[Rfam]
RNA: Molybdenum/Tungsten riboswitch aptamer (Moco RNA motif)
Organism: Marinitoga piezophila
RNA sequence: ACAAAAUACCCCUUCCGAGCCUUUUCUCCUAAAACGCAAGCUGCGUCAUGGAAAAAGGCCAAUGGGUAUAACUGGAAACGGUUAUGCCUCCCGUGUUUGGAAAGGAAGGAAAAUUCUAAAGGG
Numbered sequence: 001a002c003a004a005a006a007u008a009c010c011c012c013u014u015c016c017g018a019g020c021c022u023u024u025u026c027u028c029c030u031a032a033a034a035c036g037c038a039a040g041c042u043g044c045g046u047c048a049u050g051g052a053a054a055a056a057g058g059c060c061a062a063u064g065g066g067u068a069u070a071a072c073u074g075g076a077a078a079c080g081g082u083u084a085u086g087c088c089u090c091c092c093g094u095g096u097u098u099g100g101a102a103a104g105g106a107a108g109g110a111a112a113a114u115u116c117u118a119a120a121g122g123g
Stems, first nucleotide, its partner, number of pairs: 003117001006114001011109006019059007027052003034046003064089011090100002
Dot-bracket structure: ..(..(....((((((..(((((((.(((....(((.......)))...))))))))))....(((((((((((....)))))))))))((.......))...))))))....)..)......